[Rfam]
RNA sequence: AAGGGCUGGGGAAGAGCUGCUGGGUGGUGGGGCCAGCAGGCCCUGCCCUGUACCAGGCAGCCCCCUCCCCUCUGCCCCAGAGCAAGGCCCUGGCGUGCUCCCUGUGGGGCUCCCCCUGUGCAGUAACAGGUGUGAGCAUCCAUGCAGCCUUCUGAUGGUCAUGUAUGAUACUGCACACACCC
Numbered sequence: 001a002a003g004g005g006c007u008g009g010g011g012a013a014g015a016g017c018u019g020c021u022g023g024g025u026g027g028u029g030g031g032g033c034c035a036g037c038a039g040g041c042c043c044u045g046c047c048c049u050g051u052a053c054c055a056g057g058c059a060g061c062c063c064c065c066u067c068c069c070c071u072c073u074g075c076c077c078c079a080g081a082g083c084a085a086g087g088c089c090c091u092g093g094c095g096u097g098c099u100c101c102c103u104g105u106g107g108g109g110c111u112c113c114c115c116c117u118g119u120g121c122a123g124u125a126a127c128a129g130g131u132g133u134g135a136g137c138a139u140c141c142a143u144g145c146a147g148c149c150u151u152c153u154g155a156u157g158g159u160c161a162u163g164u165a166u167g168a169u170a171c172u173g174c175a176c177a178c179a180c181c182c
Stems, first nucleotide, its partner, number of pairs: 003077004008072003016061003020056003024053002026047005032041003089109003092105001095102001117177009127167002133161003137157004144151001
RNA: Small Cajal body specific RNA 16